The family of this 131-nucleotide RNA sequence from Microbacterium ginsengiterrae is "FMN riboswitch aptamer (RFN element)". Lineage of the source: Bacteria > Bacillati > Actinomycetota > Actinomycetes > Microbacterium.
[Rfam]
RNA sequence: ACAUGUGCUCCGGGAUCGGUGAAAGUCCGAACCGGCGGUGACAGUCCGCGACUCGCAGGCUUUCCGGUCUGCGAUUGAACCGGUGGAAUUCCGGUACCGACAGUCAGAGUCUGGAUGGGAGAAGCACACAG
Number, nucleotide and partner (000 for none) at each position: 001a000002c000003a000004u128005g127006u126007g125008c124009u123010c121011c000012g000013g000014g000015a000016u000017c029018g028019g027020u000021g000022a000023a000024a000025g000026u000027c019028c018029g017030a000031a110032c109033c099034g098035g049036c048037g047038g046039u000040g000041a000042c000043a000044g097045u096046c038047c037048g036049c035050g000051a000052c000053u074054c073055g000056c000057a000058g000059g000060c000061u000062u000063u000064c000065c000066g000067g000068u000069c000070u000071g000072c000073g054074a053075u000076u000077g000078a000079a095080c094081c093082g092083g091084u000085g000086g000087a000088a000089u000090u000091c083092c082093g081094g080095u079096a045097c044098c034099g033100a000101c113102a112103g111104u000105c000106a000107g000108a000109g032110u031111c103112u102113g101114g000115a000116u000117g000118g000119g000120a000121g010122a000123a009124g008125c007126a006127c005128a004129c000130a000131g000